Shown here is a 112-nucleotide sequence from Salmonella enterica, a member of the family "OxyS RNA".
Lineage of the source: Bacteria > Pseudomonadota > Gammaproteobacteria > Enterobacterales > Salmonella enterica subsp. enterica.
For this family Rfam cites "The Escherichia coli OxyS regulatory RNA represses fhlA translation by blocking ribosome binding" (Altuvia et al., EMBO J, 1998).
It is one of the family's seed sequences.
The family's RNA type in Rfam is small RNA.
The family's consensus secondary structure is taken from published work.
[Rfam]
RNA sequence: AGAACGGAGCGGUUUCUCGUUUAACCCUUGAAGACACCGCCCGUUCAGAGGGUAUCUCUCGAACCCGAAAUAACUAAAGCCAACGUGAACUUUUGCGGACCUCUGGUCCGCU
Numbered sequence: 001a002g003a004a005c006g007g008a009g010c011g012g013u014u015u016c017u018c019g020u021u022u023a024a025c026c027c028u029u030g031a032a033g034a035c036a037c038c039g040c041c042c043g044u045u046c047a048g049a050g051g052g053u054a055u056c057u058c059u060c061g062a063a064c065c066c067g068a069a070a071u072a073a074c075u076a077a078a079g080c081c082a083a084c085g086u087g088a089a090c091u092u093u094u095g096c097g098g099a100c101c102u103c104u105g106g107u108c109c110g111c112u
Base pairs, nucleotide, nucleotide: 002046003045004044005043006042007041009040010039011038012037014034015033017031018030050066051065052064053063095111096110097109098108099107100106101105